[Rfam]
RNA sequence: CCAACGAGGAUAUCCUGAGGUCACUCCUCCGGCUCUGUCCAGGUGGCAAAAGGGAGCUUAGGGCUUUUGCCCUGUGAUGUACAGUCCCAUUCCACAACGUUGGAUAUCAAGCUGGGCUUUGUGUCUGCACCUGCAUAUUCCUAAACCUUCUCAGAGUCUUUGGACUAUGACUGAGGAGACAAACCAUGCAGGAAACAAUU
Numbered sequence: 001c002c003a004a005c006g007a008g009g010a011u012a013u014c015c016u017g018a019g020g021u022c023a024c025u026c027c028u029c030c031g032g033c034u035c036u037g038u039c040c041a042g043g044u045g046g047c048a049a050a051a052g053g054g055a056g057c058u059u060a061g062g063g064c065u066u067u068u069g070c071c072c073u074g075u076g077a078u079g080u081a082c083a084g085u086c087c088c089a090u091u092c093c094a095c096a097a098c099g100u101u102g103g104a105u106a107u108c109a110a111g112c113u114g115g116g117c118u119u120u121g122u123g124u125c126u127g128c129a130c131c132u133g134c135a136u137a138u139u140c141c142u143a144a145a146c147c148u149u150c151u152c153a154g155a156g157u158c159u160u161u162g163g164a165c166u167a168u169g170a171c172u173g174a175g176g177a178g179a180c181a182a183a184c185c186a187u188g189c190a191g192g193a194a195a196c197a198a199u200u
Base pairs, nucleotide, nucleotide: 001103002102003101004100005099006098008040009039010038011037012036014032015031017026018025019024043095044094045093046092052088053087054086055085056082059079060078061075130192131191132190133189134188135187136186147178148177149176150175151174152173156165157164158163
RNA: Small nucleolar RNA SNORA73 family